Bacterial RNase P class A: a 393-nucleotide sequence from Shimia aestuarii.
[Rfam]
RNA sequence: GCAGAGGGCCGGAUGGCCGCGGGGGCUUUGGCCCGCGAGGAAAGUCCGGACUCCACAAGGCAACGGUGCCGGGUAACGCCCGGCCGGAGCGAUCCGAGGGAAAGCGCCACAGAAAACAGACCGCCUUUCAUGUCCCUCGCGGGACAUGAUGGGUAAGGGUGAAACGGUGGGGUAAGAGCCCACCGCGCUUCUGGCAACAGCGGCGGCACGGCAAGCCCCACCGGGAGCAAUGCCAAAUAGGGACCGCGCGUGAGCGAUCACAGGGGCGCCUUGCCCCGAGCAGGUCCGGGUUGGCAGCUAGAGGGCAUCCGGUAACGGGUGCCCAAGAUGAAUGGUCAUCGGCGGCGGGGCGACCCGCCGUGACAGAAUCCGGCUUACAGGCCCUCUGCGCGU
Number, nucleotide and partner (000 for none) at each position: 001g389002c388003a387004g386005a385006g384007g383008g382009c381010c380011g378012g340013a339014u338015g337016g336017c335018c334019g000020c037021g036022g000023g034024g033025g032026c031027u000028u000029u000030g000031g026032c025033c024034c023035g000036c021037g020038a000039g000040g000041a000042a376043a375044g374045u000046c373047c372048g371049g370050a369051c227052u226053c225054c224055a000056c000057a000058a000059g272060g271061c000062a000063a000064c223065g222066g221067u220068g219069c083070c082071g081072g080073g079074u000075a000076a000077c000078g000079c073080c072081c071082g070083g069084c098085c096086g095087g094088a093089g000090c000091g000092a000093u088094c087095c086096g085097a000098g084099g218100g217101a000102a000103a000104g216105c215106g212107c211108c210109a000110c000111a000112g000113a000114a000115a000116a000117c000118a000119g000120a000121c158122c157123g154124c153125c152126u151127u000128u149129c148130a147131u146132g145133u144134c143135c142136c141137u000138c000139g000140c000141g136142g135143g134144a133145c132146a131147u130148g129149a128150u000151g126152g125153g124154u123155a000156a000157g122158g121159g000160u000161g000162a000163a000164a000165c000166g184167g183168u182169g181170g180171g179172g000173u000174a000175a000176g000177a000178g000179c171180c170181c169182a168183c167184c166185g207186c205187g204188c203189u202190u000191c200192u199193g198194g000195c000196a000197a000198c193199a192200g191201c000202g189203g188204c187205g186206g000207c185208a000209c000210g108211g107212c106213a000214a000215g105216c104217c100218c099219c068220a067221c066222c065223g064224g054225g053226a052227g051228c000229a000230a000231u296232g295233c294234c293235a000236a000237a000238u000239a000240g000241g287242g286243a285244c284245c283246g000247c000248g000249c000250g000251u000252g000253a000254g000255c000256g000257a000258u000259c000260a000261c000262a000263g277264g276265g275266g274267c273268g000269c000270c000271u060272u059273g267274c266275c265276c264277c263278g000279a000280g000281c000282a000283g245284g244285u243286c242287c241288g000289g000290g000291u000292u000293g234294g233295c232296a231297g000298c000299u000300a000301g000302a000303g000304g323305g322306c321307a320308u319309c318310c317311g316312g000313u000314a000315a000316c311317g310318g309319g308320u307321g306322c305323c304324c000325a000326a000327g000328a000329u000330g000331a000332a000333u000334g018335g017336u016337c015338a014339u013340c012341g000342g000343c000344g000345g000346c000347g000348g000349g000350g000351c000352g000353a000354c000355c000356c000357g000358c000359c000360g000361u000362g000363a000364c000365a000366g000367a000368a000369u050370c049371c048372g047373g046374c044375u043376u042377a000378c011379a000380g010381g009382c008383c007384c006385u005386c004387u003388g002389c001390g000391c000392g000393u000
Clan: RNaseP clan.